[Rfam]
A member of the RNA family "SAM riboswitch aptamer (S box leader)" from Brevibacillus fulvus, 117 nucleotides long.
RNA sequence: UACUUAUCAUGAGCGGCGAAGGGACCUGGCCCGAUGAAGCCCGGCAGCGGAUCUUGCAAGCGAACGGCUGACAAGAUGCUGUGCCAAUUCCAGCAGGAUAAUCCUGACAGAUAAGGA
Numbered sequence: 001u002a003c004u005u006a007u008c009a010u011g012a013g014c015g016g017c018g019a020a021g022g023g024a025c026c027u028g029g030c031c032c033g034a035u036g037a038a039g040c041c042c043g044g045c046a047g048c049g050g051a052u053c054u055u056g057c058a059a060g061c062g063a064a065c066g067g068c069u070g071a072c073a074a075g076a077u078g079c080u081g082u083g084c085c086a087a088u089u090c091c092a093g094c095a096g097g098a099u100a101a102u103c104c105u106g107a108c109a110g111a112u113a114a115g116g117a
Stems, first nucleotide, its partner, number of pairs: 001117001003115006013042001015041003021032003026093004043085004048081002051077006089109001094106005
Notes:
A reference for the family is Winkler et al. (2003), "An mRNA structure that controls gene expression by binding S-adenosylmethionine", Nat Struct Biol.